[Rfam]
RNA sequence: GUCGCGAGUAGAAGCGGUCAGGGCGGAAAGGCCCGGGACAUUGCUCGGCAC
Numbered sequence: 001g002u003c004g005c006g007a008g009u010a011g012a013a014g015c016g017g018u019c020a021g022g023g024c025g026g027a028a029a030g031g032c033c034c035g036g037g038a039c040a041u042u043g044c045u046c047g048g049c050a051c
Stems, first nucleotide, its partner, number of pairs: 005047006015036001018038002021034003024030001
RNA: Xanthine riboswitch aptamer (NMT1 RNA)
Organism: Aquibium carbonis